[Rfam]
RNA: Small nucleolar RNA SNORA74
Organism: Liparis tanakae
RNA sequence: ACCAUUGCUCAGUCAGCUGACCAGGUGAUCUUCCUGGCUCAGUGUUACAGCGAUGGUAGAGUAUGUGGCUGUACUAGUUCUAAGCUCCGCAGGUUCUGUUUUAGAGUCUGCUGCAUCUGAGCUGUACAGUGCAUGGCCCAACGAGAGUAGCCUGUCCUGAUGCAAAAGCAGGACAGGCCUAGUGCAGGGCCGCACAUU
Dot-bracket structure: (((((((((..((..(((((.((((.......))))..)))))...)))))))))))..........(((((((.....((.(...(.(..(.((((.....)))))...).)....).))..)))))))...((((((..........((.(((((((.........))))))).))........))))))......